[Rfam]
RNA: Plastid-rps18 3UTR RNA
RNA sequence: CGCAAGUAUUUUACGAUUAAGAAGCAACUGUUUCUUGUAUAGAUCAUGAACGAAUUU
Numbered sequence: 001c002g003c004a005a006g007u008a009u010u011u012u013a014c015g016a017u018u019a020a021g022a023a024g025c026a027a028c029u030g031u032u033u034c035u036u037g038u039a040u041a042g043a044u045c046a047u048g049a050a051c052g053a054a055u056u057u
Base pairs, nucleotide, nucleotide: 018037019036020035021034022033023032024031025030